[Rfam]
RNA sequence: CUCACAACAAAGAUCUGUGUUCAGCGAUCCUGGCGUCUUCUUCCGAGGACUGAUCGGUCGAUUGCUGUCCAGCUCGACUUUUAUGGAGCCAUCAGAUUAUUGUGAUGUCAAUUUUCCGGUCGACAGAUUUGAGAAGAAUAUGGCCUUGGGACAGCACCUGAGCUCGCUUCGGCUGAGCUCGGUGUGUAACCUUGGUCAAGAGCGUCAUAUUCCUGAUCCCUUCGCUGAGGCCGUCGGCUUGUGAAGUUGGGGAAAAACCAUGACUUGCUUACAUCU
Number, nucleotide and partner (000 for none) at each position: 001c000002u000003c000004a000005c000006a000007a000008c000009a000010a000011a130012g129013a128014u127015c126016u125017g124018u123019g070020u000021u000022c067023a066024g065025c000026g063027a062028u061029c060030c057031u056032g055033g054034c052035g050036u049037c048038u047039u046040c045041u000042u000043c000044c000045g040046a039047g038048g037049a036050c035051u000052g034053a000054u033055c032056g031057g030058u000059c000060g029061a028062u027063u026064g000065c024066u023067g022068u000069c000070c019071a000072g000073c000074u000075c000076g000077a000078c122079u000080u119081u118082u000083a000084u110085g109086g108087a000088g106089c000090c104091a000092u000093c000094a000095g000096a000097u000098u000099a000100u000101u000102g000103u000104g090105a000106u088107g000108u086109c085110a084111a000112u000113u000114u000115u000116c000117c000118g081119g080120u000121c000122g078123a018124c017125a016126g015127a014128u013129u012130u011131g000132a000133g000134a000135a000136g000137a000138a000139u000140a000141u000142g196143g000144c000145c000146u000147u000148g193149g192150g191151a000152c000153a000154g000155c184156a183157c182158c181159u000160g180161a179162g178163c177164u176165c175166g173167c172168u000169u000170c000171g000172g167173c166174u000175g165176a164177g163178c162179u161180c160181g158182g157183u156184g155185u000186g000187u000188a000189a000190c000191c150192u149193u148194g000195g000196u142197c000198a000199a000200g000201a269202g268203c267204g264205u263206c262207a261208u260209a000210u000211u000212c000213c000214u000215g000216a000217u253218c252219c251220c250221u249222u000223c000224g247225c246226u245227g000228a000229g239230g238231c237232c236233g000234u000235c000236g232237g231238c230239u229240u000241g000242u000243g000244a000245a226246g225247u224248u000249g221250g220251g219252g218253a217254a000255a000256a000257a000258c000259c000260a208261u207262g206263a205264c204265u000266u000267g203268c202269u201270u000271a000272c000273a000274u000275c000276u000
RNA: A. fumigatus sRNA Afu_309